[Rfam]
RNA sequence: ACGUGCCAGGUUAACCGACCGUUAAGGUUUCCGAUUUAUAACAACAACCAUCCAGUCUUCUGGAUGCCGAGUGGCUCCUGUCCACUCUGUUUGACGCCUCCCUGUUAUCACUUCGAGCCGCCCCUCGGGCGGCUCUUUUUUU
Numbered sequence: 001a002c003g004u005g006c007c008a009g010g011u012u013a014a015c016c017g018a019c020c021g022u023u024a025a026g027g028u029u030u031c032c033g034a035u036u037u038a039u040a041a042c043a044a045c046a047a048c049c050a051u052c053c054a055g056u057c058u059u060c061u062g063g064a065u066g067c068c069g070a071g072u073g074g075c076u077c078c079u080g081u082c083c084a085c086u087c088u089g090u091u092u093g094a095c096g097c098c099u100c101c102c103u104g105u106u107a108u109c110a111c112u113u114c115g116a117g118c119c120g121c122c123c124c125u126c127g128g129g130c131g132g133c134u135c136u137u138u139u140u141u142u
Stems, first nucleotide, its partner, number of pairs: 004046002009016001023038004028033001050065004069087006093106004115135009
Rfam assigns this 142-nucleotide sequence to the family "Alphaproteobacterial sRNA BjrC1505". For this family Rfam cites "Small RNAs of the Bradyrhizobium/Rhodopseudomonas lineage and their analysis" (Madhugiri et al., RNA Biol, 2012). By type it is a small RNA.